A member of the RNA family "EcpR1" from Parahoeflea halophila, 112 nucleotides long.
[Rfam]
RNA sequence: UUACCCCAUGAUGUUCAGGUCCGCCGCAUCUCCUGGGUCGUGGGGUGGCCGACCGAGACCAAGUGCACCAAGUGGUAUCCUCGUUCCACGCCUUGUUUCGGUCGGCCCUCGA
Dot-bracket structure: ..((((((((...((((((............)))))).))))))))(((((((((((.......................................))))))))))).....
Rfam links the family to the GO terms negative regulation of cell cycle, mRNA binding and regulation of translation in response to stress. It is annotated as a small RNA. Rfam describes the family as follows. Perviously named SmelC291, SmrC10, or Sra33. According to its overproduction phenotype it was renamed Elongated Cell Phenotype RNA1. Induced by stress,EcpR1 negatively regulates cell cycle master regulatory genes dnaA and gcrA at post-transcriptional level by base pairing between its strongly conserved GC-rich loop and the target mRNAs. It's regulation is hfq-independent but requires RNase E to regulate dnaA. The source organism's lineage runs through Bacteria, Pseudomonadati, Pseudomonadota, Rhizobiaceae and Parahoeflea.